[Rfam]
RNA sequence: UUAGGAGCAAUAACCAACCUUCUUGAUACAACAAGAAAUUGGUUAUUGCUCCUAAAUUU
Numbered sequence: 001u002u003a004g005g006a007g008c009a010a011u012a013a014c015c016a017a018c019c020u021u022c023u024u025g026a027u028a029c030a031a032c033a034a035g036a037a038a039u040u041g042g043u044u045a046u047u048g049c050u051c052c053u054a055a056a057u058u059u
Stems, first nucleotide, its partner, number of pairs: 001055014020037006

Shown here is a 59-nucleotide RNA from Cephalotus follicularis, a member of the family "Plastid-psbA-3 3UTR RNA". The match comes from Rfam's covariance-model search (59 bits). The organism belongs to Cephalotus, within Eukaryota. About the family: Plastid psbA-3 is a non-coding RNA (ncRNA) present in plastids. Rfam classes the family as a cis-regulatory element. The family's consensus secondary structure was predicted with LocARNA. Clan: Plastid-psbA 3UTR RNA clan.